[Rfam]
RNA sequence: GAUGAAUGCUAAAGACUGGAAGACAUGAGAAUUAAAAAACAUUUAUUUAAGAGAACAGUAGGGA
Numbered sequence: 001g002a003u004g005a006a007u008g009c010u011a012a013a014g015a016c017u018g019g020a021a022g023a024c025a026u027g028a029g030a031a032u033u034a035a036a037a038a039a040c041a042u043u044u045a046u047u048u049a050a051g052a053g054a055a056c057a058g059u060a061g062g063g064a
Base pairs, nucleotide, nucleotide: 007060008059009058010057016051017050020047021046023044025042026041027040
RNA: mir-9412 microRNA precursor family